Shown here is a 67-nucleotide RNA sequence from Cimex lectularius, a member of the family "mir-124 microRNA precursor family". Taxonomically the source falls in Cimex (Eukaryota, Panarthropoda, Pterygota, Prosorrhyncha). Pairs were carried over by alignment from the consensus structure, which was predicted with PFOLD. It scores 65 bits against the family's covariance model. Its family is annotated with RISC complex and miRNA-mediated post-transcriptional gene silencing in the Gene Ontology.
[Rfam]
RNA sequence: CUCUCCUCGUGUUCACUGUGAGCUUUGAUGUUUUUAAUCAUAAGGCACGCGGUGAAUGCCAAGAGAG
Numbered sequence: 001c002u003c004u005c006c007u008c009g010u011g012u013u014c015a016c017u018g019u020g021a022g023c024u025u026u027g028a029u030g031u032u033u034u035u036a037a038u039c040a041u042a043a044g045g046c047a048c049g050c051g052g053u054g055a056a057u058g059c060c061a062a063g064a065g066a067g
Base pairs, nucleotide, nucleotide: 003065004064005063009059010058011057012056013055014054015053016052018050019049020048023045024044025043026042027041030038